[Rfam]
RNA sequence: AUGGUCCAGGGAAAGGAUCCUAUGCUCCUGAACCUGCGGGUUGUGGGUGCAGCCUUGGACCAGGCAGCCCAACCCUGACCUAAGUACAUUUUCUCCUGGGGUUUGAGUUUGCAAUCACAGGUGUGAACAUUUUAGCCGCAGUUUAACCAUCACCUGUGAUACUGCAAAUAGGA
Numbered sequence: 001a002u003g004g005u006c007c008a009g010g011g012a013a014a015g016g017a018u019c020c021u022a023u024g025c026u027c028c029u030g031a032a033c034c035u036g037c038g039g040g041u042u043g044u045g046g047g048u049g050c051a052g053c054c055u056u057g058g059a060c061c062a063g064g065c066a067g068c069c070c071a072a073c074c075c076u077g078a079c080c081u082a083a084g085u086a087c088a089u090u091u092u093c094u095c096c097u098g099g100g101g102u103u104u105g106a107g108u109u110u111g112c113a114a115u116c117a118c119a120g121g122u123g124u125g126a127a128c129a130u131u132u133u134a135g136c137c138g139c140a141g142u143u144u145a146a147c148c149a150u151c152a153c154c155u156g157u158g159a160u161a162c163u164g165c166a167a168a169u170a171g172g173a
Base pairs, nucleotide, nucleotide: 003080004079005078006077009074010073015069016068018066019064020063021062024060028052029051030050032048033047034046092100093099094098108168109167110166111165112164113163115161118158119157124152125151126150130146131145134143135142136141
The record is a 173-nucleotide sequence from Suricata suricatta, which matches "Small Cajal body specific RNA 16" in Rfam. The source organism's lineage runs through Eukaryota, Chordata, Teleostomi, Euteleostomi and Suricata. On this family, see Darzacq et al., EMBO J 2002: "Cajal body-specific small nuclear RNAs: a novel class of 2'-O-methylation and pseudouridylation guide RNAs". The base pairs follow the family's consensus structure, which was predicted with RNAfold. By type it is a small Cajal body RNA. Its family is annotated with nucleolus and RNA processing in the Gene Ontology. Rfam describes the family as follows. scaRNAs are a specific class of small nuclear RNAs which localise to the Cajal bodies and guide the modification of RNA polymerase II transcribed spliceosomal RNAs U1, U2, U4, U5 and U12. ACA47 belongs to the H/ACA box class of guide RNAs as it has the predicted hairpin-hinge-hairpin-tail structure, the conserved H/ACA-box motifs and is found associated with GAR1. ACA47 is predicted to guide the pseudouridylation of residue U5 of the U1 spliceosomal snRNA. It scores 109 bits against the family's covariance model.